The record is a 100-nucleotide RNA from Ipomoea nil, which matches "mir-172 microRNA precursor family" in Rfam. Rfam 15.1 lists 2,076 matches to the family in 219 species. NCBI's taxonomy places the organism under Eukaryota, Embryophyta, Spermatophyta, Magnoliopsida, Ipomoea. Pairs were carried over by alignment from the consensus structure, which was predicted with PFOLD. mir-172 has been experimentally verified in Arabidopsis thaliana. This family is thought to target mRNAs coding for APETALA2-like transcription factors. The mature sequence is excised from the 3' arm of the hairpin. On this family, see Mette et al., Plant Physiol 2002: "Short RNAs can identify new candidate transposable element families in Arabidopsis". It scores 79 bits against the family's covariance model. Gene Ontology terms of the family: RISC complex and miRNA-mediated post-transcriptional gene silencing.
RNA sequence: UCUUUUGCGGGUGCAGCAUCAUCAAGAUUCACAAAUCAAACACUUAUCCAUUAGGGUUUGAUCCAUAUGGGAAUCUUGAUGAUGCUGCAGCGGCAAUGGG
Numbered sequence: 001u002c003u004u005u006u007g008c009g010g011g012u013g014c015a016g017c018a019u020c021a022u023c024a025a026g027a028u029u030c031a032c033a034a035a036u037c038a039a040a041c042a043c044u045u046a047u048c049c050a051u052u053a054g055g056g057u058u059u060g061a062u063c064c065a066u067a068u069g070g071g072a073a074u075c076u077u078g079a080u081g082a083u084g085c086u087g088c089a090g091c092g093g094c095a096a097u098g099g100g
Stems, first nucleotide, its partner, number of pairs: 010091001012089019032069002
Dot-bracket structure: .........(.(((((((((((((((((((.((..................................)).))))))))))))))))))).).........